[Rfam]
Nucleotides: 165
Base pairs, nucleotide, nucleotide: 005161006160007159008158009157010156011152012151013096015148016147017146020142021141022140025138026137027136028135029134030133031132032131039114040113041112042111043110045074046073047072048071049070054065055064056063057062081105082104083103084102087099088098089097116126117125118124
Number, partner (000 for none) and nucleotide at each position: 001000a002000c003000c004000a005161g006160u007159c008158c009157u010156c011152g012151u013096u014000a015148g016147g017146c018000g019000a020142g021141g022140c023000u024000u025138c026137u027136a028135u029134a030133c031132g032131a033000a034000u035000a036000u037000a038000u039114g040113c041112c042111a043110c044000u045074g046073c047072c048071c049070g050000g051000a052000a053000a054065c055064g056063u057062c058000g059000a060000a061000a062057g063056a064055c065054g066000c067000c068000a069000a070049u071048g072047g073046g074045u075000u076000g077000a078000a079000c080000a081105g082104g083103u084102a085000u086000u087099g088098c089097c090000g091000g092000c093000u094000u095000a096013a097089g098088g099087c100000u101000u102084u103083a104082c105081u106000u107000a108000a109000u110043g111042u112041g113040g114039c115000u116126g117125a118124g119000c120000a121000u122000u123000g124118c125117u126116c127000u128000a129000a130000g131032u132031c133030g134029u135028a136027u137026a138025g139000u140022g141021c142020c143000a144000a145000a146017g147016c148015u149000c150000a151012a152011c153000c154000a155000g156010g157009g158008g159007g160006a161005u162000u163000g164000u165000g